[Rfam]
The family of this 73-nucleotide RNA sequence from Methanobacterium alkalithermotolerans is "tRNA". By type it is a transfer RNA. Transfer RNA (tRNA) molecules are approximately 80 nucleotides in length. Rfam links the family to the GO term triplet codon-amino acid adaptor activity. NCBI's taxonomy places the organism under Archaea, Methanobacteriati, Methanobacteria, Methanobacteriaceae, Methanobacterium.
Nucleotides: 073
Base pairs, nucleotide, nucleotide: 001072002071003070004069005068006067007066010025011024012023027043028042029041030040031039049065050064051063052062053061
Number, partner (000 for none) and nucleotide at each position: 001072g002071c003070c004069u005068c006067g007066a008000u009000a010025g011024c012023u013000u014000a015000g016000c017000c018000g019000g020000u021000a022000u023012a024011g025010c026000g027043c028042g029041g030040g031039a032000u033000u034000c035000g036000u037000a038000a039031u040030c041029c042028c043027g044000a045000g046000g047000u048000c049065g050064c051063g052062g053061g054000u055000u056000c057000a058000a059000u060000u061053c062052c063051c064050g065049c066007u067006c068005g069004a070003g071002g072001c073000u